[Rfam]
RNA sequence: CUCGAAAAUCCGAGGGAAUGGGACUCCCUCGGAAUUUUUCAAUUUUCGAGGGAAUUAUUCCCUCGGAAAUCCGAGGGAUUUUAUUCCCUCGGAAAUUGAAAAAUUCCGAGGGAGUCCCAUUCCCUCGGAUUUUUUUAA
Numbered sequence: 001c002u003c004g005a006a007a008a009u010c011c012g013a014g015g016g017a018a019u020g021g022g023a024c025u026c027c028c029u030c031g032g033a034a035u036u037u038u039u040c041a042a043u044u045u046u047c048g049a050g051g052g053a054a055u056u057a058u059u060c061c062c063u064c065g066g067a068a069a070u071c072c073g074a075g076g077g078a079u080u081u082u083a084u085u086c087c088c089u090c091g092g093a094a095a096u097u098g099a100a101a102a103a104u105u106c107c108g109a110g111g112g113a114g115u116c117c118c119a120u121u122c123c124c125u126c127g128g129a130u131u132u133u134u135u136u137a138a
Base pairs, nucleotide, nucleotide: 004134005133006132007131008130009129010128011127012126013125014124015123016122017121018120020118021117022116026052027051028050029049030048031047033046061076062075063074064073065072066071083115084114085113086112087111088110089109090108091107092106
RNA: Yersinia sRNA 155(RyfD)